[Rfam]
RNA: Small nucleolar RNA SNORA63
RNA sequence: GUGCAGGAUAAGUUACAACAUGGCUGUGUGGUGCUGUGCUGUCGUUCCCCCUGCCAACAGCAACUCGCUUCCUACUAUCCCUGUCGGCCUCGCUGUCACGGCCGCCAGGGACGCUUGGUCACGUACAC
Numbered sequence: 001g002u003g004c005a006g007g008a009u010a011a012g013u014u015a016c017a018a019c020a021u022g023g024c025u026g027u028g029u030g031g032u033g034c035u036g037u038g039c040u041g042u043c044g045u046u047c048c049c050c051c052u053g054c055c056a057a058c059a060g061c062a063a064c065u066c067g068c069u070u071c072c073u074a075c076u077a078u079c080c081c082u083g084u085c086g087g088c089c090u091c092g093c094u095g096u097c098a099c100g101g102c103c104g105c106c107a108g109g110g111a112c113g114c115u116u117g118g119u120c121a122c123g124u125a126c127a128c
Stems, first nucleotide, its partner, number of pairs: 003054005015042003019038006080109004085104004